This 78-nucleotide sequence from Gemella sp. GH3 belongs to the Rfam family "skipping-rope RNA". The base pairs follow the family's consensus structure, which is taken from published work.
RNA sequence: AUCAUUUGAGGGUAGAAAGGUUCCUACCGCACCCGAAAGGGUAUCUGAGAUGACGAGGUUACUGACCGUCCAAGUGAU
Numbered sequence: 001a002u003c004a005u006u007u008g009a010g011g012g013u014a015g016a017a018a019g020g021u022u023c024c025u026a027c028c029g030c031a032c033c034c035g036a037a038a039g040g041g042u043a044u045c046u047g048a049g050a051u052g053a054c055g056a057g058g059u060u061a062c063u064g065a066c067c068g069u070c071c072a073a074g075u076g077a078u
Base pairs, nucleotide, nucleotide: 001078002077003076004075005074006073007072008071011028012027013026014025015024019063020062021061030047031042032041033040034039052070053069054068055067
Dot-bracket structure: ((((((((..(((((...[[[..))))).(((((....))))....)....((((.....]]]...))))))))))))